[Rfam]
Nucleotides: 282
Stems, first nucleotide, its partner, number of pairs: 045226005051220002056170006066161003171206002176201004184194003210261001212260005228247007267280005
Number, partner (000 for none) and nucleotide at each position: 001000g002000u003000g004000a005000u006000g007000u008000c009000u010000u011000a012000g013000c014000u015000g016000a017000c018000a019000a020000a021000g022000a023000g024000c025000u026000u027000a028000c029000a030000u031000a032000a033000u034000a035000c036000u037000a038000u039000u040000g041000g042000c043000g044000a045226c046225a047224u048223c049222u050000u051220c052219a053000a054000a055000u056170u057169g058168c059167g060166g061165g062000a063000a064000c065000a066161c067160c068159c069000u070000a071000a072000a073000g074000a075000c076000u077000u078000c079000a080000c081000u082000a083000c084000c085000a086000a087000g088000c089000u090000g091000u092000c093000u094000u095000c096000g097000a098000a099000a100000g101000g102000a103000g104000c105000c106000a107000g108000u109000g110000g111000c112000c113000g114000a115000g116000c117000u118000a119000a120000u121000a122000g123000c124000c125000c126000u127000g128000g129000g130000u131000a132000u133000g134000g135000u136000a137000a138000a139000a140000a141000c142000g143000u144000g145000a146000a147000g148000u149000a150000u151000g152000u153000g154000a155000c156000a157000a158000u159068g160067g161066g162000c163000a164000a165061u166060c167059c168058g169057c170056a171206g172205c173000c174000a175000a176201g177200u178199c179198c180000u181000a182000a183000g184194u185193c186192u187000u188000u189000u190000u191000u192186a193185g194184a195000u196000a197000u198179g199178g200177a201176u202000g203000c204000u205172g206171u207000u208000c209000a210261c211000a212260g213259a214258c215257u216256a217000a218000a219052u220051g221000g222049a223048g224047a225046u226045g227000g228247g229246u230245g231244u232243a233242c234241u235000a236000u237000a238000c239000c240000a241234a242233g243232u244231a245230u246229g247228c248000u249000u250000a251000a252000g253000a254000u255000a256216u257215a258214g259213u260212c261210g262000g263000g264000c265000c266000a267280g268279u269278c270277u271276u272000g273000a274000g275000a276271g277270a278269g279268a280267u281000u282000g
Annotation
The record is a 282-nucleotide RNA sequence from Lipomyces starkeyi, which matches "Group I catalytic intron" in Rfam. The match comes from Rfam's covariance-model search (112 bits). The base pairs follow the family's consensus structure, which is taken from published work. A reference for the family is Cate et al. (1996), "Crystal structure of a group I ribozyme domain: principles of RNA packing", Science. Rfam's curators write: Group I catalytic introns are large self-splicing ribozymes. They catalyse their own excision from mRNA, tRNA and rRNA precursors in a wide range of organisms. Taxonomically the source falls in Lipomyces starkeyi (Eukaryota, Dikarya, Ascomycota, Lipomyces). Gene Ontology term of the family: Group I intron splicing.